[Rfam]
RNA sequence: CCUUUGGAGUGUUACAUCAAACUAAAGUAGUCUAGACUCUAUCAAGACAAAAUAGGACACGUUGAAUAAGGAA
Numbered sequence: 001c002c003u004u005u006g007g008a009g010u011g012u013u014a015c016a017u018c019a020a021a022c023u024a025a026a027g028u029a030g031u032c033u034a035g036a037c038u039c040u041a042u043c044a045a046g047a048c049a050a051a052a053u054a055g056g057a058c059a060c061g062u063u064g065a066a067u068a069a070g071g072a073a
Stems, first nucleotide, its partner, number of pairs: 001071004009060005022055003030048003035043002
RNA: RAGATH-18 RNA
Organism: Clostridium sp. DSM 8431